This 84-nucleotide RNA sequence from Acanthisitta chloris belongs to the Rfam family "mir-15 microRNA precursor family". The base pairs follow the family's consensus structure, which was predicted with RNAalifold. A reference for the family is Lagos-Quintana et al. (2001), "Identification of novel genes coding for small expressed RNAs", Science. A search with the family's covariance model found it, with a score of 71 bits. Its family is annotated with miRNA-mediated post-transcriptional gene silencing and RISC complex in the Gene Ontology. About the family: This family represents the related mir-15a and mir-15b sequences. In humans miR-15a and miR-16 are clustered within 0.5 kb at 13q14.
RNA sequence: CCUUAAAGUCCUCUAGCAGCACAUCAUGGUUUGCAUGAUCCAAGCAAGAUGCGAAUCAUUAUUUGCUGCUUUAGAAAUUUAAGG
Numbered sequence: 001c002c003u004u005a006a007a008g009u010c011c012u013c014u015a016g017c018a019g020c021a022c023a024u025c026a027u028g029g030u031u032u033g034c035a036u037g038a039u040c041c042a043a044g045c046a047a048g049a050u051g052c053g054a055a056u057c058a059u060u061a062u063u064u065g066c067u068g069c070u071u072u073a074g075a076a077a078u079u080u081a082a083g084g
Base pairs, nucleotide, nucleotide: 001084002083003082004081005080006079015070016069017068018067019066020065021064023062024061026059027058028057029056030055031054032053033052034051035050036049

The family has 164 seed sequences and 2,045 matches in Rfam 15.1.